RNA sequence: AAGUGAUAUGAUGGUAUACCAUCUUUCGGGACUGACUCUAACAAUGGAGACUAACCUUAAACCUACUGAUCACUU
Number, nucleotide and partner (000 for none) at each position: 001a075002a074003g073004u072005g071006a070007u000008a000009u000010g000011a000012u000013g000014g000015u000016a000017u000018a000019c000020c000021a000022u000023c000024u000025u000026u000027c000028g000029g000030g000031a000032c000033u000034g000035a000036c000037u000038c000039u000040a000041a000042c000043a000044a000045u000046g000047g000048a000049g000050a000051c000052u000053a000054a000055c000056c000057u000058u000059a000060a000061a000062c000063c000064u000065a000066c000067u000068g000069a000070u006071c005072a004073c003074u002075u001
RNA: Small nucleolar RNA SNORD2
Organism: Cynoglossus semilaevis